[Rfam]
RNA sequence: CCCACCGCUUACGCGGUGGGCUAUUACGUGGCGUCGCUUCGCGACU
Numbered sequence: 001c002c003c004a005c006c007g008c009u010u011a012c013g014c015g016g017u018g019g020g021c022u023a024u025u026a027c028g029u030g031g032c033g034u035c036g037c038u039u040c041g042c043g044a045c046u
Base pairs, nucleotide, nucleotide: 001020002019003018004017005016006015007014008013033045034044035043036042037041
This 46-nucleotide RNA sequence from Candidatus Korobacter versatilis belongs to the Rfam family "Acido-Lenti-1 RNA".
Rfam's curators put it in the seed alignment.
Taxonomically the source falls in Candidatus Korobacter versatilis (Bacteria, Pseudomonadati, Terriglobia, Candidatus Korobacteraceae).